[Rfam]
RNA sequence: ACCGAUAAAGGCAAACUUAUCGAAAGGUAAGGACGCAAAGCCAAGGGUCUAACGUAUACAUGAAUGUAUGCCACGAUUGCCGAGCCACCGAAG
Numbered sequence: 001a002c003c004g005a006u007a008a009a010g011g012c013a014a015a016c017u018u019a020u021c022g023a024a025a026g027g028u029a030a031g032g033a034c035g036c037a038a039a040g041c042c043a044a045g046g047g048u049c050u051a052a053c054g055u056a057u058a059c060a061u062g063a064a065u066g067u068a069u070g071c072c073a074c075g076a077u078u079g080c081c082g083a084g085c086c087a088c089c090g091a092a093g
Base pairs, nucleotide, nucleotide: 003090004089011036012035016031017030018029019028020027021026034079040085041084045081046080047077048076049075
RNA: c-di-GMP-I-GGC riboswitch aptamer
Organism: Paraliobacillus quinghaiensis